[Rfam]
RNA sequence: UAUAGAUGCACGGGGUGCCGGAAGGCUGAGAUAAAACCCGAAACCUGAUUUGGAUAAUGCCAACGUAGGGAUGCAGAUUUAUGAAUAU
Numbered sequence: 001u002a003u004a005g006a007u008g009c010a011c012g013g014g015g016u017g018c019c020g021g022a023a024g025g026c027u028g029a030g031a032u033a034a035a036a037c038c039c040g041a042a043a044c045c046u047g048a049u050u051u052g053g054a055u056a057a058u059g060c061c062a063a064c065g066u067a068g069g070g071a072u073g074c075a076g077a078u079u080u081a082u083g084a085a086u087a088u
Stems, first nucleotide, its partner, number of pairs: 007075004011040004016034001017026003044069004050063004
A member of the RNA family "TPP riboswitch aptamer (THI element)" from Salegentibacter echinorum, 88 nucleotides long. The base pairs follow the family's consensus structure, which is taken from published work. About the family: Vitamin B(1) in its active form thiamin pyrophosphate (TPP) is an essential coenzyme that is synthesised by coupling of pyrimidine and thiazole moieties in bacteria. Gene Ontology term of the family: thiamine pyrophosphate binding.